This 206-nucleotide RNA sequence from Chara braunii belongs to the Rfam family "U2 spliceosomal RNA". Taxonomically the source falls in Chara (Eukaryota, Viridiplantae, Charales, Characeae).

RNA sequence: AUACCUUUCUGGGCCUUUUGGCUAAGAUCAAGUGUCGCAUGUGUUCUGAUCACUGAUCAGUUUAAUAUCUGAUCCGUGGUCCAUGGUCACCACGAUAUUAAAUUAAUUUUUCUGGGCUACGGAGGGGUCAAAGGGGUAGGCUUGCUUGCUCGACCCCUUCAGCGUUGCCUCUGUAUUGCACUGCUGCGGAGAGAGGCGCAACCCUC
Number, nucleotide and partner (000 for none) at each position: 001a000002u000003a000004c000005c000006u000007u000008u027009c026010u025011g000012g023013g022014c021015c020016u000017u000018u000019u000020g015021g014022c013023u012024a000025a010026g009027a008028u000029c000030a000031a000032g000033u000034g000035u000036c000037g000038c000039a000040u000041g000042u000043g000044u000045u000046c000047u000048g000049a000050u000051c000052a000053c000054u000055g074056a073057u072058c071059a070060g069061u000062u000063u000064a000065a000066u000067a000068u000069c060070u059071g058072a057073u056074c055075c000076g090077u089078g088079g087080u000081c086082c000083a000084u000085g000086g081087u079088c078089a077090c076091c000092a000093c000094g000095a000096u000097a000098u000099u000100a000101a000102a000103u000104u000105a000106a000107u000108u000109u000110u000111u000112c000113u000114g000115g000116g000117c000118u000119a000120c000121g000122g159123a158124g157125g156126g155127g154128u153129c152130a000131a000132a000133g000134g000135g000136g000137u148138a147139g146140g145141c000142u000143u000144g000145c140146u139147u138148g137149c000150u000151c000152g129153a128154c127155c126156c125157c124158u123159u122160c000161a000162g199163c198164g197165u196166u195167g000168c000169c191170u190171c189172u188173g187174u186175a000176u000177u000178g000179c000180a000181c000182u000183g000184c000185u000186g174187c173188g172189g171190a170191g169192a000193g000194a000195g166196g165197c164198g163199c162200a000201a000202c000203c000204c000205u000206c000

The family's consensus secondary structure is taken from published work. The family's RNA type in Rfam is spliceosomal small nuclear RNA.